The family of this 164-nucleotide sequence from Macaca fascicularis is "U1 spliceosomal RNA".
[Rfam]
RNA sequence: AUACCUGCCUGUCAGGGGAGACACCACGAUUCCUAAGAUUGCUUUCCCAGGGCAAGGCUUAUCCAUUGCAAGUUGGAUGUACUGACCCCUGAGACACCUCCAAAUAUGGGAAACUCUACUGCAGAAUUUGUGGUAGUGUGGGACUGUGUUCAUGCUCUCCUCUG
Numbered sequence: 001a002u003a004c005c006u007g008c009c010u011g012u013c014a015g016g017g018g019a020g021a022c023a024c025c026a027c028g029a030u031u032c033c034u035a036a037g038a039u040u041g042c043u044u045u046c047c048c049a050g051g052g053c054a055a056g057g058c059u060u061a062u063c064c065a066u067u068g069c070a071a072g073u074u075g076g077a078u079g080u081a082c083u084g085a086c087c088c089c090u091g092a093g094a095c096a097c098c099u100c101c102a103a104a105u106a107u108g109g110g111a112a113a114c115u116c117u118a119c120u121g122c123a124g125a126a127u128u129u130g131u132g133g134u135a136g137u138g139u140g141g142g143a144c145u146g147u148g149u150u151c152a153u154g155c156u157c158u159c160c161u162c163u164g
Stems, first nucleotide, its partner, number of pairs: 013121003016048006024041001026039001049090004056083002060079005092117003097110001099109002138163001140161004146155003

The base pairs follow the family's consensus structure, which is taken from published work. About the family: U1 is a small nuclear RNA (snRNA) component of the spliceosome (involved in pre-mRNA splicing). It is annotated as a spliceosomal small nuclear RNA. Lineage of the source: Eukaryota > Chordata > Boreoeutheria > Euarchontoglires > Macaca. The match comes from Rfam's covariance-model search (91 bits).